This 88-nucleotide sequence from Devosia sp. A8/3-2 belongs to the Rfam family "Glycine riboswitch aptamer". This family represents the bacterial glycine riboswitch. It scores 63 bits against the family's covariance model.
RNA sequence: GCGGCAACUGCGGGAGAGAUUGGAUUUUCUCCAGCGCCGAAGGAGCAACCGCCCCGAAACUCUCAGGCAAAAGGACCGCAGCACCGCU
Dot-bracket structure: .......((((((......((((.......)))).(((((..(((...(......)...))))).))).......)))))).......